This 237-nucleotide RNA from Streptomyces finlayi belongs to the Rfam family "Streptomyces sRNA 4677". Rfam's curators write: Located in the intergenic region between anti-sigma factor SCO4677 gene and a putative regulatory protein gene SCO4676. scr4677 expression requires the SCO4677 activity and scr4677 sRNA itself seem to affect the levels of the SCO4676-associated transcripts. Rfam classes the family as a small RNA.
RNA sequence: CGACCCGGCCACCCGCGACAUCAAAGACUUAAAGAACUUGGGAAAUGACCCAACCAAACCCACCCCGCCUCUCCCGGAGGCUCGGUCACCCACACGGGUGAGGUUUGCCAACUGAGCUGGAUUUUCGGUGGGUUGGUGGGCAUAUGCUCACGCUCACCACCGCAAACAUGUCGGCCCCCGACCGGGACUCACAAUCCCGACCGAGGGCCUGACCAACGAGGAAGCAAGACCUUCCUG
Numbered sequence: 001c002g003a004c005c006c007g008g009c010c011a012c013c014c015g016c017g018a019c020a021u022c023a024a025a026g027a028c029u030u031a032a033a034g035a036a037c038u039u040g041g042g043a044a045a046u047g048a049c050c051c052a053a054c055c056a057a058a059c060c061c062a063c064c065c066c067g068c069c070u071c072u073c074c075c076g077g078a079g080g081c082u083c084g085g086u087c088a089c090c091c092a093c094a095c096g097g098g099u100g101a102g103g104u105u106u107g108c109c110a111a112c113u114g115a116g117c118u119g120g121a122u123u124u125u126c127g128g129u130g131g132g133u134u135g136g137u138g139g140g141c142a143u144a145u146g147c148u149c150a151c152g153c154u155c156a157c158c159a160c161c162g163c164a165a166a167c168a169u170g171u172c173g174g175c176c177c178c179c180g181a182c183c184g185g186g187a188c189u190c191a192c193a194a195u196c197c198c199g200a201c202c203g204a205g206g207g208c209c210u211g212a213c214c215a216a217c218g219a220g221g222a223a224g225c226a227a228g229a230c231c232u233u234c235c236u237g
Base pairs, nucleotide, nucleotide: 007217008214015073017071086101087100088099089098090097091096116153117152118150119149120148173209174208175207176206177205179203180202184198185197186196187195220235221234222233223232224231
Annotation:
Taxonomically the source falls in Streptomyces (Bacteria, Bacillati, Actinomycetes, Kitasatosporales).